About this RNA:
This 72-nucleotide RNA sequence belongs to the Rfam family "tRNA". Rfam's curators put it in the seed alignment. It is annotated as a transfer RNA.
RNA sequence: UAGGAUGGGGUGUGAUAGGUGGCACGGAGAAUUUUGGAUUCUCAGGGAUGGGUUCGAUUCUCAUAGUCCUAG
Numbered sequence: 001u002a003g004g005a006u007g008g009g010g011u012g013u014g015a016u017a018g019g020u021g022g023c024a025c026g027g028a029g030a031a032u033u034u035u036g037g038a039u040u041c042u043c044a045g046g047g048a049u050g051g052g053u054u055c056g057a058u059u060c061u062c063a064u065a066g067u068c069c070u071a072g
Base pairs, nucleotide, nucleotide: 001071002070003069004068005067006066010025011024012023013022027043028042029041030040031039048064049063050062051061052060